[Rfam]
RNA sequence: UGAACUGAAUAAUUUUCUUUUCGUAUAAUCCCGGGAAUAGGCCCGGGAGUCUCUACGAGGUCACCGCAAAUGAUCUGUCUACGAAAAGGGAAGGCAUGCCG
Numbered sequence: 001u002g003a004a005c006u007g008a009a010u011a012a013u014u015u016u017c018u019u020u021u022c023g024u025a026u027a028a029u030c031c032c033g034g035g036a037a038u039a040g041g042c043c044c045g046g047g048a049g050u051c052u053c054u055a056c057g058a059g060g061u062c063a064c065c066g067c068a069a070a071u072g073a074u075c076u077g078u079c080u081a082c083g084a085a086a087a088g089g090g091a092a093g094g095c096a097u098g099c100c101g
Stems, first nucleotide, its partner, number of pairs: 018087008029048007058076006
RNA: Purine riboswitch aptamer